[Rfam]
RNA sequence: UUACAGGCUAAAAACGCGACGUCCUGUCGCAACGCCUGUACUAGCACGUCCUGUGCG
Numbered sequence: 001u002u003a004c005a006g007g008c009u010a011a012a013a014a015c016g017c018g019a020c021g022u023c024c025u026g027u028c029g030c031a032a033c034g035c036c037u038g039u040a041c042u043a044g045c046a047c048g049u050c051c052u053g054u055g056c057g
Base pairs, nucleotide, nucleotide: 002040003039004038005037006036007035008034016030017029018028019027020026044056045055046054047053
Rfam assigns this 57-nucleotide RNA sequence from Oceanobacillus piezotolerans to the family "Bacillaceae-1 RNA". Taxonomically the source falls in Oceanobacillus (Bacteria, Bacillota, Caryophanales, Bacillaceae). It scores 53 bits against the family's covariance model.